RNA sequence: GGUUUUGACCCAGUAUCUAAAGGUACUACGGGCGUCUGACCUUCCCAUUAGGGUUGUGUCAAAAACCUCAGUUUUUGGAUCGCCUUCUCGGGGAUAUCCGGGAGGGCAAA
Numbered sequence: 001g002g003u004u005u006u007g008a009c010c011c012a013g014u015a016u017c018u019a020a021a022g023g024u025a026c027u028a029c030g031g032g033c034g035u036c037u038g039a040c041c042u043u044c045c046c047a048u049u050a051g052g053g054u055u056g057u058g059u060c061a062a063a064a065a066c067c068u069c070a071g072u073u074u075u076u077g078g079a080u081c082g083c084c085u086u087c088u089c090g091g092g093g094a095u096a097u098c099c100g101g102g103a104g105g106g107c108a109a110a
Stems, first nucleotide, its partner, number of pairs: 007036002009032002013029002016025001018023001037061004041056001044053002085108001087106003093099001
RNA: SL2 RNA
Organism: Cylicocyclus nassatus